[Rfam]
RNA sequence: AAAUGAUAAAAUUUUAAGUCGCUUUGGAUAAAAGUGUCUGCUAAAUGACUGAAU
Dot-bracket structure: ............(.((...((((((.....))))))..))..)...........

Notes
This 54-nucleotide RNA from Sinocyclocheilus rhinocerous belongs to the Rfam family "UnaL2 LINE 3' element". Taxonomically the source falls in Sinocyclocheilus (Eukaryota, Euteleostomi, Actinopterygii, Cyprinoidei). Pairs were carried over by alignment from the consensus structure, which is taken from published work. A search with the family's covariance model found it, with a score of 56 bits. About the family: The eel long interspersed element (LINE) UnaL2 and its partner short interspersed element (SINE) share a conserved 3' tail containing a stem-loop that is critical for their retrotransposition. Presumably, the first step of retrotransposition is the recognition of their 3' tails by UnaL2-encoded reverse transcriptase. The solution structure of a 17-nucleotide RNA derived from the 3' tail of UnaL2 was determined by NMR.